The family of this 47-nucleotide RNA sequence from Legionella tucsonensis is "Guanidine-II riboswitch aptamer (mini-ykkC)". The match comes from Rfam's covariance-model search (40 bits). Rfam describes the family as follows. Simpler in structure and has fewer highly conserved nucleotide positions than the ykkC-yxkD leader. Despite this each of its two stem-loop structures directly bind free guanidine.
RNA sequence: AUGUGAGGACGACCUCACCCAUUAUGGUUGCAUGCGGGACGGCCCGA
Numbered sequence: 001a002u003g004u005g006a007g008g009a010c011g012a013c014c015u016c017a018c019c020c021a022u023u024a025u026g027g028u029u030g031c032a033u034g035c036g037g038g039a040c041g042g043c044c045c046g047a
Base pairs, nucleotide, nucleotide: 003018004017005016006015007014008013035046036045037044038043